[Rfam]
RNA sequence: CCGUCUCUCAGUUCUAGCCCAUCCCCUCGGAAGCUAGAAUUUUCAAGCGCCAUGUUCGCAUGGCGCUUUUUUUU
Number, nucleotide and partner (000 for none) at each position: 001c000002c000003g000004u000005c000006u000007c000008u000009c000010a041011g040012u039013u038014c037015u036016a035017g034018c033019c000020c000021a000022u000023c000024c030025c029026c000027u000028c000029g025030g024031a000032a000033g018034c017035u016036a015037g014038a013039a012040u011041u010042u000043u000044c000045a000046a067047g066048c065049g064050c063051c062052a061053u060054g059055u000056u000057c000058g000059c054060a053061u052062g051063g050064c049065g048066c047067u046068u000069u000070u000071u000072u000073u000074u000
RNA: Burkholderia sRNA 54